[Rfam]
Shown here is a 76-nucleotide RNA from Flavobacterium noncentrifugens, a member of the family "Flavo-1 RNA". Pairs were carried over by alignment from the consensus structure, which is taken from published work.

RNA sequence: CUGCAUCAGGGAUGGAAGCGGCAUCCUUUUAUGGAGCAACGCGAAAUAAAAGAUAAAGCGGACAGCCCGGGCCGAA
Numbered sequence: 001c002u003g004c005a006u007c008a009g010g011g012a013u014g015g016a017a018g019c020g021g022c023a024u025c026c027u028u029u030u031a032u033g034g035a036g037c038a039a040c041g042c043g044a045a046a047u048a049a050a051a052g053a054u055a056a057a058g059c060g061g062a063c064a065g066c067c068c069g070g071g072c073c074g075a076a
Stems, first nucleotide, its partner, number of pairs: 009068003013064002018059002023054003029049004
Notes
The family has 201 seed sequences and 7,497 matches in Rfam 15.1.